This 193-nucleotide RNA from Lactococcus hircilactis belongs to the Rfam family "FMN riboswitch aptamer (RFN element)". Lineage of the source: Bacteria > Bacillota > Bacilli > Streptococcaceae > Lactococcus. The family's consensus secondary structure is taken from published work. Gene Ontology term of the family: FMN binding.
RNA sequence: ACUUAUCUUCAGGGCACCGUGAAAUUCGGGACCGGCGGUAAAUGAGGCUGACUUAGACACUCAGACCUCACAACUCCGCGAUUCGCAAAUGCGAUUGAGCUAGUGAAAAUCUAGCAGCGACAGUGCAGCAUAUGUUAUGCUUAAUCAACACUUUUUAGCGUUGGUUUUACAGUCUGGAUGGAAGAAGAUGGAC
Numbered sequence: 001a002c003u004u005a006u007c008u009u010c011a012g013g014g015c016a017c018c019g020u021g022a023a024a025u026u027c028g029g030g031a032c033c034g035g036c037g038g039u040a041a042a043u044g045a046g047g048c049u050g051a052c053u054u055a056g057a058c059a060c061u062c063a064g065a066c067c068u069c070a071c072a073a074c075u076c077c078g079c080g081a082u083u084c085g086c087a088a089a090u091g092c093g094a095u096u097g098a099g100c101u102a103g104u105g106a107a108a109a110u111c112u113a114g115c116a117g118c119g120a121c122a123g124u125g126c127a128g129c130a131u132a133u134g135u136u137a138u139g140c141u142u143a144a145u146c147a148a149c150a151c152u153u154u155u156u157a158g159c160g161u162u163g164g165u166u167u168u169a170c171a172g173u174c175u176g177g178a179u180g181g182a183a184g185a186a187g188a189u190g191g192a193c
Stems, first nucleotide, its partner, number of pairs: 003191008017029003033119002035079004083094002099115005121176003